[Rfam]
RNA sequence: UCAGACAAAGCUAAACCUGUCGCGAGGCAGGGGCGGAAAGCCGCGGAUCUCAAUGAGAAAGCCGGGCUGCCUCAU
Numbered sequence: 001u002c003a004g005a006c007a008a009a010g011c012u013a014a015a016c017c018u019g020u021c022g023c024g025a026g027g028c029a030g031g032g033g034c035g036g037a038a039a040g041c042c043g044c045g046g047a048u049c050u051c052a053a054u055g056a057g058a059a060a061g062c063c064g065g066g067c068u069g070c071c072u073c074a075u
Stems, first nucleotide, its partner, number of pairs: 003072002011036002016031006034061001039068004044064003048058002
RNA: c-di-GMP-I-GGC riboswitch aptamer